[Rfam]
RNA sequence: GCAGUUCAUUAGACGACCGCUUGCCAUAAAACAGCAAGAGGAAAGUCCGGGCAGCAUAGGAUAUGGCAGUUGUUAACGGCAACCGGGGGUAACCCUAGGGAAAGUGCCACAGAAACAAAACCGCCUGCUAGAUUUCGAUCUGGGAGGUAAGGGUGAAAUGAGUGGGGUAAGAGCCCACAGCGUCAUAUGGCGACAUAUGGAGAAGGUAAACCCUGCCUGCUGCAAGGAGGUCAACAUUAAAGAACGAUCCGUUCGUUGGCCGGUACCCGCUCGAUCCUAGGGGCAACUCUAGGGCUAGAUAGAUGGUCGUCCUCGACAAAACCCGGCUUAUAGAUGAACUGUCGAA
Number, nucleotide and partner (000 for none) at each position: 001g342002c341003a340004g339005u338006u337007c336008a335009u334010u333011a331012g311013a310014c309015g308016a307017c306018c305019g000020c038021u037022u036023g035024c034025c000026a000027u031028a000029a000030a000031a027032c000033a000034g024035c023036a022037a021038g020039a000040g000041g000042a000043a329044a328045g327046u000047c326048c325049g324050g323051g322052c222053a221054g220055c219056a000057u000058a000059g250060g249061a248062u247063a000064u000065g217066g216067c215068a214069g083070u082071u081072g080073u079074u000075a000076a000077c000078g000079g073080c072081a071082a070083c069084c098085g096086g095087g094088g093089g000090u000091a000092a000093c088094c087095c086096u085097a000098g084099g213100g212101a000102a000103a000104g211105u210106g207107c206108c205109a000110c000111a000112g000113a000114a000115a000116c000117a000118a000119a000120a000121c152122c151123g148124c147125c146126u145127g000128c143129u142130a141131g140132a139133u138134u000135u000136c000137g000138a133139u132140c131141u130142g129143g128144g000145a126146g125147g124148u123149a000150a000151g122152g121153g000154u000155g000156a000157a000158a000159u000160g000161a000162g178163u177164g176165g175166g174167g000168u000169a000170a000171g000172a000173g000174c166175c165176c164177a163178c162179a000180g000181c000182g000183u200184c199185a198186u197187a196188u195189g194190g000191c000192g000193a000194c189195a188196u187197a186198u185199g184200g183201a000202g000203a000204a000205g108206g107207u106208a000209a000210a105211c104212c100213c099214u068215g067216c066217c065218u000219g055220c054221u053222g052223c000224a000225a000226g268227g267228a000229g000230g260231u259232c258233a257234a256235c255236a000237u000238u000239a000240a000241a000242g254243a253244a252245c251246g000247a062248u061249c060250c059251g245252u244253u243254c242255g235256u234257u233258g232259g231260c230261c000262g000263g000264u000265a000266c000267c227268c226269g000270c000271u000272c000273g000274a000275u294276c293277c292278u291279a290280g289281g288282g287283g000284c000285a000286a000287c282288u281289c280290u279291a278292g277293g276294g275295c000296u000297a000298g000299a000300u000301a000302g000303a000304u000305g018306g017307u016308c015309g014310u013311c012312c000313u000314c000315g000316a000317c000318a000319a000320a000321a000322c051323c050324c049325g048326g047327c045328u044329u043330a000331u011332a000333g010334a009335u008336g007337a006338a005339c004340u003341g002342u001343c000344g000345a000346a000
The record is a 346-nucleotide RNA sequence from Candidatus Microsaccharimonas sossegonensis, which matches "Bacterial RNase P class A" in Rfam. It is annotated as a ribozyme.